[Rfam]
Metazoan signal recognition particle RNA: a 298-nucleotide RNA sequence from Octopus sinensis. Gene Ontology terms of the family: SRP-dependent cotranslational protein targeting to membrane, signal sequence recognition and signal recognition particle, endoplasmic reticulum targeting. Rfam describes the family as follows. The signal recognition particle (SRP) is a universally conserved ribonucleoprotein. It is involved in the co-translational targeting of proteins to membranes. The eukaryotic SRP consists of a 300-nucleotide 7S RNA and six proteins: SRPs 72, 68, 54, 19, 14, and 9. Archaeal SRP consists of a 7S RNA and homologues of the eukaryotic SRP19 and SRP54 proteins. Eukaryotic and archaeal 7S RNAs have very similar secondary structures, as represented by this family. Eight helical elements fold into the Alu and S domains, separated by a long linker region. The Alu domain is thought to mediate the peptide chain elongation retardation function of the SRP. The universally conserved helix which interacts with the SRP54 M domain mediates signal sequence recognition. In eukaryotes and archaea, the SRP19-helix 6 complex is thought to be involved in SRP assembly and stabilises helix 8 for SRP54 binding. The Signal Recognition Particle Database (SRPDB) provides compilations of SRP components, with phylogenetic data and structural illustrations. Many sequences below the threshold for this family are clearly closely related, but are most likely to be SRP RNA derived pseudogenes. The human genome in particular is known to contain a large amount of SRP RNA related sequence, including Alu repeats. While the threshold of this family is set high so as to minimise the number of hits to such regions, it is likely that some remain. The family's RNA type in Rfam is non-coding RNA gene. On this family, see Wild et al., Curr Opin Struct Biol 2002: "Towards the structure of the mammalian signal recognition particle".

RNA sequence: GCCGGGAGUCGUGGCGUGCUCCUGUAAUCCAGCUACUGGGAGGCUUGGUUGGUUGACCGGUUUGAGGAUGGGAGUCCUGGUAGUCGGUCUUCUAUGGCGAUCGGGUGUCCGCGCUAAGCUCGGCAUCAAUAUGGUGCUGGAGAGGGAGCUCAUCAGGACCAGGUUGUCUAAGGAGGGUCGCUUCGGCCCAGGGCGGAAACGCAGCAGGCAAAAGGCCCCGUGUCGAGCAGUAGUGGGAUCGCGCCUGUGAAUAGUCGUCGGCUGGCAGCCUGUUCGAUAUAAUUGAACUCCAACCUUU
Numbered sequence: 001g002c003c004g005g006g007a008g009u010c011g012u013g014g015c016g017u018g019c020u021c022c023u024g025u026a027a028u029c030c031a032g033c034u035a036c037u038g039g040g041a042g043g044c045u046u047g048g049u050u051g052g053u054u055g056a057c058c059g060g061u062u063u064g065a066g067g068a069u070g071g072g073a074g075u076c077c078u079g080g081u082a083g084u085c086g087g088u089c090u091u092c093u094a095u096g097g098c099g100a101u102c103g104g105g106u107g108u109c110c111g112c113g114c115u116a117a118g119c120u121c122g123g124c125a126u127c128a129a130u131a132u133g134g135u136g137c138u139g140g141a142g143a144g145g146g147a148g149c150u151c152a153u154c155a156g157g158a159c160c161a162g163g164u165u166g167u168c169u170a171a172g173g174a175g176g177g178u179c180g181c182u183u184c185g186g187c188c189c190a191g192g193g194c195g196g197a198a199a200c201g202c203a204g205c206a207g208g209c210a211a212a213a214g215g216c217c218c219c220g221u222g223u224c225g226a227g228c229a230g231u232a233g234u235g236g237g238a239u240c241g242c243g244c245c246u247g248u249g250a251a252u253a254g255u256c257g258u259c260g261g262c263u264g265g266c267a268g269c270c271u272g273u274u275c276g277a278u279a280u281a282a283u284u285g286a287a288c289u290c291c292a293a294c295c296u297u298u
Stems, first nucleotide, its partner, number of pairs: 001044003004023006028041003047295006058285005066275007077268003081264008092254004102247007109237002112235005118228009127166004132161004137156004142151003167173002175218005186209003193202003